[Rfam]
RNA: Group II catalytic intron D1-D4-3
Organism: Arachidicoccus rhizosphaerae
RNA sequence: UCCAUCGUGAGGUGGAAUCUGAAGGAAGCUUACGGCAAAAUUCUGCUCCGAGGAACACGAAUCAUAUCAGGCACAAACACUGUGGGUAAGGUUGCUAAUCAAACUGAAGCCCCAAGAUUACACAGACAGUGUAGUGUAAAUAUGGCGGAGACAUGGAAGGAAAGUAAACAUC
Dot-bracket structure: ((((((....))))))...........(.(....((....((((((((((...........(((((....(((...((((((.((((..((((........))))...))))..............))))))..)))...))))))))))...))))).....))....).)